[Rfam]
RNA: Mammalian CPEB3 ribozyme
Organism: Alligator sinensis
RNA sequence: UGUUGCUGUAACAGCCACAGCAGAAGCACGCUCCCUGCGGCCCUGCCAGAUCCUAGCGAAUCUGCAAAUUCUGCU
Numbered sequence: 001u002g003u004u005g006c007u008g009u010a011a012c013a014g015c016c017a018c019a020g021c022a023g024a025a026g027c028a029c030g031c032u033c034c035c036u037g038c039g040g041c042c043c044u045g046c047c048a049g050a051u052c053c054u055a056g057c058g059a060a061u062c063u064g065c066a067a068a069u070u071c072u073g074c075u
Base pairs, nucleotide, nucleotide: 014041015040016039019075020074021073022072023071024070025069026038027037028036047064048063049062050061051060053058